The family of this 89-nucleotide RNA sequence from Ailuropoda melanoleuca is "mir-7 microRNA precursor family". Rfam links the family to the GO terms RISC complex and miRNA-mediated post-transcriptional gene silencing. It scores 70 bits against the family's covariance model. Rfam's curators write: This family represents the microRNA (miRNA) precursor mir-7. For this family Rfam cites "microRNAs: tiny regulators with great potential" (Ambros, Cell, 2001). Pairs were carried over by alignment from the consensus structure, which was predicted with PFOLD.
[Rfam]
RNA sequence: CGGGCUCGUCCCAUCUGGAAGACUAGUGAUUUUGUUGUUGUCUCGCCGUGUCCAACAACAAGUCCCAGUCUGCCGCAUGGUGCCGGCCA
Numbered sequence: 001c002g003g004g005c006u007c008g009u010c011c012c013a014u015c016u017g018g019a020a021g022a023c024u025a026g027u028g029a030u031u032u033u034g035u036u037g038u039u040g041u042c043u044c045g046c047c048g049u050g051u052c053c054a055a056c057a058a059c060a061a062g063u064c065c066c067a068g069u070c071u072g073c074c075g076c077a078u079g080g081u082g083c084c085g086g087c088c089a
Base pairs, nucleotide, nucleotide: 002088003087005085008083009082011080012079013078014077016075017074018073020071021070022069023068024067026066028064029063030062031061032060034059035058036057037056038055039054